[Rfam]
RNA sequence: UCAUAAUUUCAAGGCCAUAACAAAAGUACUCAUAGUGCAGCCCUGUCAGAUUCCACUGAAUUUGUGAAUUCUACU
Numbered sequence: 001u002c003a004u005a006a007u008u009u010c011a012a013g014g015c016c017a018u019a020a021c022a023a024a025a026g027u028a029c030u031c032a033u034a035g036u037g038c039a040g041c042c043c044u045g046u047c048a049g050a051u052u053c054c055a056c057u058g059a060a061u062u063u064g065u066g067a068a069u070u071c072u073a074c075u
Stems, first nucleotide, its partner, number of pairs: 013042003019075001022072001024070002026038003047064007